[Rfam]
RNA: Small nucleolar RNA SNORA23
RNA sequence: GCUCAAGUGUGUGCAUAGUUGUCAUCUGUGUCUGGUAGCAGUGUCUGUCUGUGUUUUGCAUUCAGAUCUUGCUAUCCACACAAACAUCAUGCAGCCAAAGAAAAACUUGGGAUCAUAGUACUGGUCUAGUGUUGUGUGUUUGGGCACGUUUCCCACUGACCAGCCUCCAAAUUCCCAAACAUGA
Numbered sequence: 001g002c003u004c005a006a007g008u009g010u011g012u013g014c015a016u017a018g019u020u021g022u023c024a025u026c027u028g029u030g031u032c033u034g035g036u037a038g039c040a041g042u043g044u045c046u047g048u049c050u051g052u053g054u055u056u057u058g059c060a061u062u063c064a065g066a067u068c069u070u071g072c073u074a075u076c077c078a079c080a081c082a083a084a085c086a087u088c089a090u091g092c093a094g095c096c097a098a099a100g101a102a103a104a105a106c107u108u109g110g111g112a113u114c115a116u117a118g119u120a121c122u123g124g125u126c127u128a129g130u131g132u133u134g135u136g137u138g139u140u141u142g143g144g145c146a147c148g149u150u151u152c153c154c155a156c157u158g159a160c161c162a163g164c165c166u167c168c169a170a171a172u173u174c175c176c177a178a179a180c181a182u183g184a
Stems, first nucleotide, its partner, number of pairs: 013092004029082003033078003036074006043067005050060003108177005121163006128157004133148005
Dot-bracket structure: ............((((............(((.(((((((((.(((((..(((.....)))..))))).)))))).))).)))......))))...............(((((........((((((.((((.(((((......))))).....)))))))))).........))))).......